[Rfam]
RNA sequence: CUGCAUGUUGCAACCCGGGCUUCUCUGAAUAAUAGAAGUGACGAAUGCCAAGCCCCAAUGCUUGUGCCCAUAUCGCCCUUCAGGUUGCAGUUCAGCUGCCUCUUAAUGGCUGUUUUGUGUCUAUUCAAUGGCUAAAUCA
Numbered sequence: 001c002u003g004c005a006u007g008u009u010g011c012a013a014c015c016c017g018g019g020c021u022u023c024u025c026u027g028a029a030u031a032a033u034a035g036a037a038g039u040g041a042c043g044a045a046u047g048c049c050a051a052g053c054c055c056c057a058a059u060g061c062u063u064g065u066g067c068c069c070a071u072a073u074c075g076c077c078c079u080u081c082a083g084g085u086u087g088c089a090g091u092u093c094a095g096c097u098g099c100c101u102c103u104u105a106a107u108g109g110c111u112g113u114u115u116u117g118u119g120u121c122u123a124u125u126c127a128a129u130g131g132c133u134a135a136a137u138c139a
Stems, first nucleotide, its partner, number of pairs: 003067005010061002017055005022047001024044002075132003079128002083122002086119005095110003